[Rfam]
RNA sequence: UUGAUAGUGAUAUUAUGGGUGAAGGAAGUGGUGUAACAAUUCUUUUGAGCGUACGAACAGAAACUUGAUGAGGCUAAAUGGUGGAUAAGGUUGCUAAGCAAACCGAAGUCCAAAAGGUAAACGUAAAACCAAGACGUUGUGAAAGAAACUUGUUUGUAAU
Numbered sequence: 001u002u003g004a005u006a007g008u009g010a011u012a013u014u015a016u017g018g019g020u021g022a023a024g025g026a027a028g029u030g031g032u033g034u035a036a037c038a039a040u041u042c043u044u045u046u047g048a049g050c051g052u053a054c055g056a057a058c059a060g061a062a063a064c065u066u067g068a069u070g071a072g073g074c075u076a077a078a079u080g081g082u083g084g085a086u087a088a089g090g091u092u093g094c095u096a097a098g099c100a101a102a103c104c105g106a107a108g109u110c111c112a113a114a115a116g117g118u119a120a121a122c123g124u125a126a127a128a129c130c131a132a133g134a135c136g137u138u139g140u141g142a143a144a145g146a147a148a149c150u151u152g153u154u155u156g157u158a159a160u
Stems, first nucleotide, its partner, number of pairs: 002015005028160002031157002036153002042145006048138005064133004073124002083111004089104004
Group II catalytic intron D1-D4-3: a 160-nucleotide sequence from Thomasclavelia cocleata. Pairs were carried over by alignment from the consensus structure. Group II introns are found in rRNA, tRNA and mRNA of organelles in fungi, plants and protists, and also in mRNA in bacteria.